[Rfam]
RNA sequence: UGCCUAAACCAACAAAUUUAUUUGUAGGCAUGGCAAAAAAGACCUAUGGAAGGUACUGAACCCUGCGUUCAGCGACUCUUCCAUGGGCUGUACUCCGAAAGGUGUAUGGGAUCGCAAGAUCU
Numbered sequence: 001u002g003c004c005u006a007a008a009c010c011a012a013c014a015a016a017u018u019u020a021u022u023u024g025u026a027g028g029c030a031u032g033g034c035a036a037a038a039a040a041g042a043c044c045u046a047u048g049g050a051a052g053g054u055a056c057u058g059a060a061c062c063c064u065g066c067g068u069u070c071a072g073c074g075a076c077u078c079u080u081c082c083a084u085g086g087g088c089u090g091u092a093c094u095c096c097g098a099a100a101g102g103u104g105u106a107u108g109g110g111a112u113c114g115c116a117a118g119a120u121c122u
Stems, first nucleotide, its partner, number of pairs: 001035004009028002012025004043087010056072006089108005095102002109122005

Rfam assigns this 122-nucleotide RNA sequence to the family "LOOT RNA". It is one of the family's seed sequences.